[Rfam]
RNA sequence: GGCUUGAAAUGGCAAACUUAUUGAAAACUAGGGACGCAGCACCACAGGUCUAAGGCGAUGGAGCUAUGACGGCUGGGUUACCAAA
Numbered sequence: 001g002g003c004u005u006g007a008a009a010u011g012g013c014a015a016a017c018u019u020a021u022u023g024a025a026a027a028c029u030a031g032g033g034a035c036g037c038a039g040c041a042c043c044a045c046a047g048g049u050c051u052a053a054g055g056c057g058a059u060g061g062a063g064c065u066a067u068g069a070c071g072g073c074u075g076g077g078u079u080a081c082c083a084a085a
Stems, first nucleotide, its partner, number of pairs: 012037002017032004022027001041078003045075003048070003055064002
RNA: c-di-GMP-I riboswitch aptamer